[Rfam]
RNA sequence: UAUGACCAUCUGGAAGAGAUCGGGAAAACCGACGCCGACGGAGCAACCACCCCGGAAACUCUCAGGCAAAAGGACCAGACGGUUUGA
Numbered sequence: 001u002a003u004g005a006c007c008a009u010c011u012g013g014a015a016g017a018g019a020u021c022g023g024g025a026a027a028a029c030c031g032a033c034g035c036c037g038a039c040g041g042a043g044c045a046a047c048c049a050c051c052c053c054g055g056a057a058a059c060u061c062u063c064a065g066g067c068a069a070a071a072g073g074a075c076c077a078g079a080c081g082g083u084u085u086g087a
Base pairs, nucleotide, nucleotide: 006082007081009079010078011077012076013075020032021031022030023029034067035066036065037063038062041061042060043059047055048054
Dot-bracket structure: .....((.(((((......((((.....)))).(((((..(((...((.....))...))))).))).......))))).)).....
A member of the RNA family "Glycine riboswitch aptamer" from Paenochrobactrum gallinarii, 87 nucleotides long. Taxonomically the source falls in Paenochrobactrum (Bacteria, Pseudomonadati, Alphaproteobacteria, Brucellaceae).